glmS glucosamine-6-phosphate activated ribozyme aptamer: a 159-nucleotide RNA sequence from Bdellovibrio bacteriovorus. Lineage of the source: Bacteria > Bdellovibrionia > Bdellovibrionales > Pseudobdellovibrionaceae > Bdellovibrio. The family's consensus secondary structure is taken from published work. Rfam describes the family as follows. This entry contains a glucosamine-6-phosphate activated ribozyme that is found in the mRNA for GlmS. GlmS is an enzyme that uses fructose-6-phosphate and glutamine to generate glucosamine-6-phosphate. The ribozyme catalyses self cleavage of the glmS mRNA that is thought to regulate GlmS activity. It scores 88 bits against the family's covariance model.
RNA sequence: UUCUGAUCAUGAGCGCCAGGCCUGGCUUUGCAGACAGGUGACGAGGAACAGGGAUUAUCGAAACACUCGGCGGGUACCCUGAAGGUUGGCUUAGACCUUUGAAGUGAAUUUUAAAAACCAUUGGCAACGGUGGCGACAAAGAAAUUCACCAAGCAGGAA
Number, nucleotide and partner (000 for none) at each position: 001u000002u000003c000004u000005g000006a000007u000008c000009a000010u000011g000012a000013g000014c000015g000016c000017c000018a000019g000020g039021c038022c037023u036024g035025g000026c033027u032028u000029u000030g000031c000032a027033g026034a000035c024036a023037g022038g021039u020040g000041a000042c000043g000044a000045g000046g000047a000048a000049c081050a080051g079052g078053g077054a000055u000056u000057a000058u070059c069060g068061a067062a000063a000064c000065a000066c000067u061068c060069g059070g058071c000072g000073g000074g000075u000076a000077c053078c052079c051080u050081g049082a099083a098084g097085g096086u095087u094088g000089g000090c000091u000092u000093a000094g087095a086096c085097c084098u083099u082100u000101g000102a000103a000104g149105u148106g147107a146108a145109u144110u143111u000112u000113a000114a000115a000116a000117a000118c133119c132120a131121u130122u129123g128124g000125c000126a000127a000128c123129g122130g121131u120132g119133g118134c000135g000136a000137c000138a000139a000140a000141g000142a000143a110144a109145u108146u107147c106148a105149c104150c000151a000152a000153g000154c000155a000156g000157g000158a000159a000